[Rfam]
RNA sequence: GGUGCUAAACGGGCUUAUGGAAUAAGCGUUGUGGACCCGGGGGCGGUACCCGGCGCCUCCACCAUUUCUUACAUUCUGAUGAAUGUGAAUUAUGGGGGCGAAACAGGAUCGACACGCGUGGUAAAGAUUUGUUCGGUGCCCGGCAUGGUUCCGCCGUUAUCGGGCCGUUUUGAGUAAUUGCAAAUGACAAUUCUCGUGAGGUAGCUCUCGCUGCUUAA
Numbered sequence: 001g002g003u004g005c006u007a008a009a010c011g012g013g014c015u016u017a018u019g020g021a022a023u024a025a026g027c028g029u030u031g032u033g034g035a036c037c038c039g040g041g042g043g044c045g046g047u048a049c050c051c052g053g054c055g056c057c058u059c060c061a062c063c064a065u066u067u068c069u070u071a072c073a074u075u076c077u078g079a080u081g082a083a084u085g086u087g088a089a090u091u092a093u094g095g096g097g098g099c100g101a102a103a104c105a106g107g108a109u110c111g112a113c114a115c116g117c118g119u120g121g122u123a124a125a126g127a128u129u130u131g132u133u134c135g136g137u138g139c140c141c142g143g144c145a146u147g148g149u150u151c152c153g154c155c156g157u158u159a160u161c162g163g164g165c166c167g168u169u170u171u172g173a174g175u176a177a178u179u180g181c182a183a184a185u186g187a188c189a190a191u192u193c194u195c196g197u198g199a200g201g202u203a204g205c206u207c208u209c210g211c212u213g214c215u216u217a218a
Stems, first nucleotide, its partner, number of pairs: 001140005017128002027118003031115003037053005054100007141156004

The record is a 218-nucleotide RNA from Kiloniella litopenaei, which matches "permuted transfer-messenger RNA" in Rfam. By type it is a non-coding RNA gene. Lineage of the source: Bacteria > Alphaproteobacteria > Rhodospirillales > Kiloniellaceae > Kiloniella. A reference for the family is Williams and Bartel (1996), "Phylogenetic analysis of tmRNA secondary structure", RNA. About the family: Bacterial tmRNA, also known as 10Sa RNA or SsrA, is named for its dual tRNA and mRNA-like properties. The family's consensus secondary structure is taken from published work.